RNA sequence: UGGAUCUGUGAUGACAAAGGGUGGCGUAUGAGUUGUGGAUCAUGAGUACAUGUCUGGAAGUCUGAGAUUCAC
Numbered sequence: 001u002g003g004a005u006c007u008g009u010g011a012u013g014a015c016a017a018a019g020g021g022u023g024g025c026g027u028a029u030g031a032g033u034u035g036u037g038g039a040u041c042a043u044g045a046g047u048a049c050a051u052g053u054c055u056g057g058a059a060g061u062c063u064g065a066g067a068u069u070c071a072c
Base pairs, nucleotide, nucleotide: 002070003069004068005067006066
Shown here is a 72-nucleotide RNA sequence, a member of the family "Small nucleolar RNA SNORD113/SNORD114 family". Clan: SNORD74 clan. It is one of the family's seed sequences. It is annotated as a C/D-box small nucleolar RNA. Pairs were carried over by alignment from the consensus structure, which is taken from published work. From the family's description: The imprinted human domain at 14q32 contains two clusters of tandemly repeated small nucleolar RNAs named 14q(I) and 14q(II) snoRNAs. These two clusters are named SNORD113 and SNORD114 respectively in the HGNC approved gene symbol nomenclature.